[Rfam]
RNA sequence: AUAAGAUCGGUAGAUCUGUCUCGUAUAUAUUCAGGAAUACGGCCUGAACGUUUCUACCCGGCCACCGUAAAUGGCUGGACUACGAGUAUAUGGGUCACCGGU
Numbered sequence: 001a002u003a004a005g006a007u008c009g010g011u012a013g014a015u016c017u018g019u020c021u022c023g024u025a026u027a028u029a030u031u032c033a034g035g036a037a038u039a040c041g042g043c044c045u046g047a048a049c050g051u052u053u054c055u056a057c058c059c060g061g062c063c064a065c066c067g068u069a070a071a072u073g074g075c076u077g078g079a080c081u082a083c084g085a086g087u088a089u090a091u092g093g094g095u096c097a098c099c100g101g102u
Stems, first nucleotide, its partner, number of pairs: 020086006030048006058078007
The record is a 102-nucleotide RNA sequence from Marinithermofilum abyssi, which matches "Purine riboswitch aptamer" in Rfam. The match comes from Rfam's covariance-model search (82 bits). Clan: Purine riboswitches. The base pairs follow the family's consensus structure, which is taken from published work. Lineage of the source: Bacteria > Bacilli > Caryophanales > Thermoactinomycetaceae > Marinithermofilum.